Overview: Glycine riboswitch aptamer: a 103-nucleotide sequence from Streptoalloteichus hindustanus. The match comes from Rfam's covariance-model search (62 bits). From the family's description: This family represents the bacterial glycine riboswitch. The pairing is the family consensus, mapped onto this sequence. Clan: Glycine riboswitch clan. The source organism's lineage runs through Bacteria, Actinomycetes, Pseudonocardiales, Pseudonocardiaceae and Streptoalloteichus. The family has 44 seed sequences and 9,425 matches in Rfam 15.1.

[Rfam]
RNA sequence: AGACCCCACGCGGGAGAGACCGUCGCCGAGCGUGCUCGGGGGCGGCGCCGAAGGAGCAACUCCUCCCCGGAACCUCUCAGGCAGCCAGGACCGCGUGGGCGAG
Numbered sequence: 001a002g003a004c005c006c007c008a009c010g011c012g013g014g015a016g017a018g019a020c021c022g023u024c025g026c027c028g029a030g031c032g033u034g035c036u037c038g039g040g041g042g043c044g045g046c047g048c049c050g051a052a053g054g055a056g057c058a059a060c061u062c063c064u065c066c067c068c069g070g071a072a073c074c075u076c077u078c079a080g081g082c083a084g085c086c087a088g089g090a091c092c093g094c095g096u097g098g099g100c101g102a103g
Stems, first nucleotide, its partner, number of pairs: 006098008020045004047082003050078002054076003060070002